[Rfam]
RNA sequence: UUGGGGGUGACCCCAAAUCUGAAGGAAGCCAUCAGCAAAGUCAUAGUUCUAACGUACAGAAAUUUGAUAUAAGGCUCAAUAGUGUUGGGCAACCGAGCAAUGGAUUGGGAAAGCCCCAAAGUCAACCGUAAACACUUAGGGUAAAUCAAGUAGGACGUGAUGAAAGUAUGUUAC
Numbered sequence: 001u002u003g004g005g006g007g008u009g010a011c012c013c014c015a016a017a018u019c020u021g022a023a024g025g026a027a028g029c030c031a032u033c034a035g036c037a038a039a040g041u042c043a044u045a046g047u048u049c050u051a052a053c054g055u056a057c058a059g060a061a062a063u064u065u066g067a068u069a070u071a072a073g074g075c076u077c078a079a080u081a082g083u084g085u086u087g088g089g090c091a092a093c094c095g096a097g098c099a100a101u102g103g104a105u106u107g108g109g110a111a112a113g114c115c116c117c118a119a120a121g122u123c124a125a126c127c128g129u130a131a132a133c134a135c136u137u138a139g140g141g142u143a144a145a146u147c148a149a150g151u152a153g154g155a156c157g158u159g160a161u162g163a164a165a166g167u168a169u170g171u172u173a174c
Stems, first nucleotide, its partner, number of pairs: 001016006028174001031171002035167002040161005046156006063150006074142003081136005087116004093108004

Group II catalytic intron D1-D4-3: a 174-nucleotide RNA sequence from Saccharicrinis carchari. Rfam links the family to the GO term Group II intron splicing. The pairing is the family consensus, mapped onto this sequence.